[Rfam]
RNA: 6S-Flavo RNA
RNA sequence: ACUCAACACUAUAAUUUUUGAAAAGGGUGAGUUUAGGUUGUAAAAGCGGGCCCUACUCGUAUAGGGAUUCUUGAGCAGCUUGUUAGCCCUAAACCUGUAAUUAGGAGUUU
Numbered sequence: 001a002c003u004c005a006a007c008a009c010u011a012u013a014a015u016u017u018u019u020g021a022a023a024a025g026g027g028u029g030a031g032u033u034u035a036g037g038u039u040g041u042a043a044a045a046g047c048g049g050g051c052c053c054u055a056c057u058c059g060u061a062u063a064g065g066g067a068u069u070c071u072u073g074a075g076c077a078g079c080u081u082g083u084u085a086g087c088c089c090u091a092a093a094c095c096u097g098u099a100a101u102u103a104g105g106a107g108u109u110u
Base pairs, nucleotide, nucleotide: 024090025089026088027087028086035081036080037079038078039077044072045071046070051066052065053064054063